[Rfam]
RNA sequence: CCAGAGGGCUGGGCGGCCGCGGCGGGGACUUGUCUCCGGCGAGGAAAGUCCGGGCUCCACGGAAUAACGGUGCCGGGUAACGCCCGGCCGGAGAGUUCGCUCUUCGAGGGAUAGUGCCACAGAAAGGAUUCCGCCCGGCUUCGGACGGGUAAGGUCGAAAGGGUGCGGCAAGAGCGCACCGCGCGCCUGGCAACAGGGGCGGCACGGUAAACCCCACCGGGUGCAAGACCGAAUAGGGGCGCCGCAUGAGCCUGUUCCGGCUCGGCGCCCGGGUUGGUCGCUUGAGGGGCAGGGCAACCUGCCUCCUAGAGGAAUGGUCGCCCAUCCGCGAAGGCGGUGGACAGAACCCGGCUUACAGGCCCUCUGGCAUA
Numbered sequence: 001c002c003a004g005a006g007g008g009c010u011g012g013g014c015g016g017c018c019g020c021g022g023c024g025g026g027g028a029c030u031u032g033u034c035u036c037c038g039g040c041g042a043g044g045a046a047a048g049u050c051c052g053g054g055c056u057c058c059a060c061g062g063a064a065u066a067a068c069g070g071u072g073c074c075g076g077g078u079a080a081c082g083c084c085c086g087g088c089c090g091g092a093g094a095g096u097u098c099g100c101u102c103u104u105c106g107a108g109g110g111a112u113a114g115u116g117c118c119a120c121a122g123a124a125a126g127g128a129u130u131c132c133g134c135c136c137g138g139c140u141u142c143g144g145a146c147g148g149g150u151a152a153g154g155u156c157g158a159a160a161g162g163g164u165g166c167g168g169c170a171a172g173a174g175c176g177c178a179c180c181g182c183g184c185g186c187c188u189g190g191c192a193a194c195a196g197g198g199g200c201g202g203c204a205c206g207g208u209a210a211a212c213c214c215c216a217c218c219g220g221g222u223g224c225a226a227g228a229c230c231g232a233a234u235a236g237g238g239g240c241g242c243c244g245c246a247u248g249a250g251c252c253u254g255u256u257c258c259g260g261c262u263c264g265g266c267g268c269c270c271g272g273g274u275u276g277g278u279c280g281c282u283u284g285a286g287g288g289g290c291a292g293g294g295c296a297a298c299c300u301g302c303c304u305c306c307u308a309g310a311g312g313a314a315u316g317g318u319c320g321c322c323c324a325u326c327c328g329c330g331a332a333g334g335c336g337g338u339g340g341a342c343a344g345a346a347c348c349c350g351g352c353u354u355a356c357a358g359g360c361c362c363u364c365u366g367g368c369a370u371a
Stems, first nucleotide, its partner, number of pairs: 001367010011356001012322007020041002023038006046354003050351005055223001057221002064256001068219005073087005088108001089106007109214002114212002116208003131154002133150005139144001162180006181203001182201003186197004227279004237270006248263005286305008

Rfam assigns this 371-nucleotide RNA from Sphingomonas sinipercae to the family "Bacterial RNase P class A". The organism belongs to Sphingomonas, within Bacteria. Its family is annotated with ribonuclease P activity, dimeric ribonuclease P complex and tRNA processing in the Gene Ontology. It is annotated as a ribozyme. The match comes from Rfam's covariance-model search (294 bits).